[Rfam]
RNA: Eukaryotic large subunit ribosomal RNA, nucleotides 1876 to 2366
RNA sequence: UAGAACAAUGUAGAUAAGGGAAGUCGGCAAAAUGGAUCCGUAACUUCGGGAUAAGGAUUGGCUCUAAGGGUCGGGCACGUUGGGCCUCGGGCGGACGCCCCGGGAGCAGGCGGCCACUAGCCGGGAGACCGGCCGGCGGCGGCCAGCAUCCGGGUGCCUACGCCCCUGGCAGGCUCCGGCCGUCCGGCGUGCGGUUAACGACCGACUUAGAACUGGUACGGGCAGGGGGAAUCUGACUGUCUAAUUAAAACAUAGCAUUGCGAUGGCCAGAAAGUGGUGUUGACGCAAUGUGAUUUCUGCCCAGUGCUCUGAAUGUCAAAGUGAAGUAAUUCAACCAAGCGCGGGUAAACGGCGGGAGUAACUAUGACUCUCUUAAGGUAGCCAAAUGCCUCGUCAUCUAAUUAGUGACGCGCAUGAAUGGAUUAACGAGAUUCCCACUGUCCCUAUCUACUAUCUAGCGAAACCACAGCCAAGGGAACGGGCUUGGCGGA
Numbered sequence: 001u002a003g004a005a006c007a008a009u010g011u012a013g014a015u016a017a018g019g020g021a022a023g024u025c026g027g028c029a030a031a032a033u034g035g036a037u038c039c040g041u042a043a044c045u046u047c048g049g050g051a052u053a054a055g056g057a058u059u060g061g062c063u064c065u066a067a068g069g070g071u072c073g074g075g076c077a078c079g080u081u082g083g084g085c086c087u088c089g090g091g092c093g094g095a096c097g098c099c100c101c102g103g104g105a106g107c108a109g110g111c112g113g114c115c116a117c118u119a120g121c122c123g124g125g126a127g128a129c130c131g132g133c134c135g136g137c138g139g140c141g142g143c144c145a146g147c148a149u150c151c152g153g154g155u156g157c158c159u160a161c162g163c164c165c166c167u168g169g170c171a172g173g174c175u176c177c178g179g180c181c182g183u184c185c186g187g188c189g190u191g192c193g194g195u196u197a198a199c200g201a202c203c204g205a206c207u208u209a210g211a212a213c214u215g216g217u218a219c220g221g222g223c224a225g226g227g228g229g230a231a232u233c234u235g236a237c238u239g240u241c242u243a244a245u246u247a248a249a250a251c252a253u254a255g256c257a258u259u260g261c262g263a264u265g266g267c268c269a270g271a272a273a274g275u276g277g278u279g280u281u282g283a284c285g286c287a288a289u290g291u292g293a294u295u296u297c298u299g300c301c302c303a304g305u306g307c308u309c310u311g312a313a314u315g316u317c318a319a320a321g322u323g324a325a326g327u328a329a330u331u332c333a334a335c336c337a338a339g340c341g342c343g344g345g346u347a348a349a350c351g352g353c354g355g356g357a358g359u360a361a362c363u364a365u366g367a368c369u370c371u372c373u374u375a376a377g378g379u380a381g382c383c384a385a386a387u388g389c390c391u392c393g394u395c396a397u398c399u400a401a402u403u404a405g406u407g408a409c410g411c412g413c414a415u416g417a418a419u420g421g422a423u424u425a426a427c428g429a430g431a432u433u434c435c436c437a438c439u440g441u442c443c444c445u446a447u448c449u450a451c452u453a454u455c456u457a458g459c460g461a462a463a464c465c466a467c468a469g470c471c472a473a474g475g476g477a478a479c480g481g482g483c484u485u486g487g488c489g490g491a
Stems, first nucleotide, its partner, number of pairs: 001457004010451007018443003035059005044049001060214002063211006069203005075192009084170003089165003099154006106147002109144003113140003117136002120133005215219001227436007234428002238252003255291008266278004295422003299353003304350002306346004311342001314341003322333004354372006373377001393409005470487005